[Rfam]
RNA: let-7 microRNA precursor family
RNA sequence: UUCGGCUGAGGUAGUAGUUUGUGCUGUUGGUUGGGUUGACACUCACCCCCCCCCUUAUGGAGAUGACUGCGCAAUCUACUGCCUUGCCGGC
Numbered sequence: 001u002u003c004g005g006c007u008g009a010g011g012u013a014g015u016a017g018u019u020u021g022u023g024c025u026g027u028u029g030g031u032u033g034g035g036u037u038g039a040c041a042c043u044c045a046c047c048c049c050c051c052c053c054c055u056u057a058u059g060g061a062g063a064u065g066a067c068u069g070c071g072c073a074a075u076c077u078a079c080u081g082c083c084u085u086g087c088c089g090g091c
Base pairs, nucleotide, nucleotide: 002090003089004088005087006086008085009084010083011082012081013080014079015078016077017076019074020073021072022071023070024069026067027066033052034051035050055062056061